[Rfam]
RNA sequence: GGUGGACCUCGUUAGGUGAGGCGUCUGUUCGGAUACAGGCCGCUGACCCCACGACGUCGAGAGACGCCCAGGAUCAGGACACCUCUCCCCGGCUUAAGGGGUGAGGCCAAGCGGCUUCCCGUCCCGCGGUUCAGGCGGUGGCGGGCAUACGCCGGGCAGUGUCGAAGCUCUUACGAGAUGGGGUGCAUC
Numbered sequence: 001g002g003u004g005g006a007c008c009u010c011g012u013u014a015g016g017u018g019a020g021g022c023g024u025c026u027g028u029u030c031g032g033a034u035a036c037a038g039g040c041c042g043c044u045g046a047c048c049c050c051a052c053g054a055c056g057u058c059g060a061g062a063g064a065c066g067c068c069c070a071g072g073a074u075c076a077g078g079a080c081a082c083c084u085c086u087c088c089c090c091g092g093c094u095u096a097a098g099g100g101g102u103g104a105g106g107c108c109a110a111g112c113g114g115c116u117u118c119c120c121g122u123c124c125c126g127c128g129g130u131u132c133a134g135g136c137g138g139u140g141g142c143g144g145g146c147a148u149a150c151g152c153c154g155g156g157c158a159g160u161g162u163c164g165a166a167g168c169u170c171u172u173a174c175g176a177g178a179u180g181g182g183g184u185g186c187a188u189c
Base pairs, nucleotide, nucleotide: 006184007183008182009181010180011174012173013097015169016168017167020163021162022161025159026158027157028156029155030154031153032152039115040114041113042112043111045075046074048072049071055066056065057064058063082106083105084104085103088100089099090098117147119145
RNA: M-box riboswitch aptamer (ykoK leader)